[Rfam]
RNA sequence: AACGUUCAUCCCACUGGGACGGAAGUAAGCAUAAGCUGAAGGAACGCUUC
Numbered sequence: 001a002a003c004g005u006u007c008a009u010c011c012c013a014c015u016g017g018g019a020c021g022g023a024a025g026u027a028a029g030c031a032u033a034a035g036c037u038g039a040a041g042g043a044a045c046g047c048u049u050c
Base pairs, nucleotide, nucleotide: 003046004045005044006043007042009019010018011017012016022047028037029036030035
A member of the RNA family "Glutamine riboswitch aptamer (glnA leader)", 50 nucleotides long. A reference for the family is Ames and Breaker (2011), "Bacterial aptamers that selectively bind glutamine", RNA Biol. Rfam's curators put it in the seed alignment. Its family is annotated with glutamine binding in the Gene Ontology.